[Rfam]
RNA sequence: CUCGAGACUAGAGUCACAUCCUAACAGGUUUGUUGUCUUGGUGUGCUAUAGUUCUCGGACAUGGACUCCUGCUCCUAUUCACUGGCUGUGAGGUCUCUUGUCUCAGCCGGCCACCGGAGCAGGGACACGA
Dot-bracket structure: .((((((((..((.((((((...(((.......)))...))))))))..))).)))))..........(((((((......((((.((.((.........)).)).)))).....)))))))........
Shown here is a 130-nucleotide sequence from Ceyx cyanopectus, a member of the family "Small nucleolar RNA SNORA3/SNORA45 family". The members of this family belong to the H/ACA class of snoRNAs which are thought to guide the sites of modification of uridines to pseudouridines. This family includes mouse snoMBI-28 and human homologues ACA3 (SNORA3) and ACA3-2 (SNORA45). Both ACA3 and ACA3-2 share the same host gene. The organism belongs to Ceyx, within Eukaryota. Its family is annotated with nucleolus and RNA processing in the Gene Ontology. By type it is an H/ACA-box small nucleolar RNA. The family is grouped with related families in Rfam's "SNORA3 clan".